[Rfam]
RNA sequence: GGUUUCUGUUAGUUUUGCGUGGUUGCGCUGCAAGAAAGAAGAGUUGUGCAAAUCUAUGCAAAACUGACAGCGACC
Numbered sequence: 001g002g003u004u005u006c007u008g009u010u011a012g013u014u015u016u017g018c019g020u021g022g023u024u025g026c027g028c029u030g031c032a033a034g035a036a037a038g039a040a041g042a043g044u045u046g047u048g049c050a051a052a053u054c055u056a057u058g059c060a061a062a063a064c065u066g067a068c069a070g071c072g073a074c075c
Base pairs, nucleotide, nucleotide: 003073004072006070007069008068009067010066011065012064013063014062015061016060017059018058019057021054023051024050025049026048027047028046030044031043
Dot-bracket structure: ..((.((((((((((((((.(.((((((.((...........)).))))))..)..)))))))))))))).))..

The family of this 75-nucleotide sequence from Sphaeramia orbicularis is "mir-19 microRNA precursor family".
Rfam links the family to the GO terms RISC complex and miRNA-mediated post-transcriptional gene silencing.
The family has 106 seed sequences and 2,337 matches in Rfam 15.1.
A reference for the family is Mourelatos et al. (2002), "miRNPs: a novel class of ribonucleoproteins containing numerous microRNAs", Genes Dev.
It scores 59 bits against the family's covariance model.
The family is grouped with related families in Rfam's "mir-19 clan".